[Rfam]
RNA sequence: UUGCCCUCUUAAGUCUGUCAGUGUCUUAAGUGGCCAGUACGGAGGGGUAUAACAGUUCUCUCUCAAACCCAGAGGUGAGGCUGAAACUCUUCUUUGGAUCACGCUGAGAGGAACAUGU
Numbered sequence: 001u002u003g004c005c006c007u008c009u010u011a012a013g014u015c016u017g018u019c020a021g022u023g024u025c026u027u028a029a030g031u032g033g034c035c036a037g038u039a040c041g042g043a044g045g046g047g048u049a050u051a052a053c054a055g056u057u058c059u060c061u062c063u064c065a066a067a068c069c070c071a072g073a074g075g076u077g078a079g080g081c082u083g084a085a086a087c088u089c090u091u092c093u094u095u096g097g098a099u100c101a102c103g104c105u106g107a108g109a110g111g112a113a114c115a116u117g118u
Stems, first nucleotide, its partner, number of pairs: 002049006009042002015037003019030001056112001058110005069097007077089003